RNA sequence: CAACACAAUACGGUGUUUUAUGCGGCACACCAGCCGCGUAGCAGCUAGAACCUGCAUCGGACUUCUUUAAGGAGAAAACAAAAUG
Number, nucleotide and partner (000 for none) at each position: 001c000002a017003a016004c015005a014006c013007a000008a000009u000010a000011c000012g000013g006014u005015g004016u003017u002018u000019u040020a039021u038022g037023c036024g035025g034026c000027a000028c000029a000030c000031c000032a000033g000034c025035c024036g023037c022038g021039u020040a019041g055042c054043a053044g052045c000046u000047a000048g000049a000050a000051c000052c044053u043054g042055c041056a000057u000058c000059g000060g000061a000062c000063u000064u000065c000066u000067u000068u000069a000070a000071g000072g000073a000074g000075a000076a000077a000078a000079c000080a000081a000082a000083a000084u000085g000
RNA: freshwater-2 RNA